Record summary: Shown here is a 152-nucleotide RNA sequence from Glycine max, a member of the family "MIR1520 microRNA precursor family". A search with the family's covariance model found it, with a score of 96 bits. Lineage of the source: Eukaryota > Magnoliopsida > eudicotyledons > Glycine > Glycine subgen. Soja. Clan: MIR1520 microRNA precursor clan.
RNA sequence: CUCUUAUUGGAUGAUGACGAUCACAUAUCAUGAUCUGAUUGGAUGUCAACUCUAUGGAAGAUGAAAUGUAUUGUAGUUGUCAUUGGUCAAUUAGAAUAGAACACGUGGUUGUCAUAAUCCAAUAAGAACGUGACACGUGACAGUCAACAUUU
Numbered sequence: 001c002u003c004u005u006a007u008u009g010g011a012u013g014a015u016g017a018c019g020a021u022c023a024c025a026u027a028u029c030a031u032g033a034u035c036u037g038a039u040u041g042g043a044u045g046u047c048a049a050c051u052c053u054a055u056g057g058a059a060g061a062u063g064a065a066a067u068g069u070a071u072u073g074u075a076g077u078u079g080u081c082a083u084u085g086g087u088c089a090a091u092u093a094g095a096a097u098a099g100a101a102c103a104c105g106u107g108g109u110u111g112u113c114a115u116a117a118u119c120c121a122a123u124a125a126g127a128a129c130g131u132g133a134c135a136c137g138u139g140a141c142a143g144u145c146a147a148c149a150u151u152u
Base pairs, nucleotide, nucleotide: 021140022139023138026135029132030131031130034127035126036125038123039122040121041120042119043118044117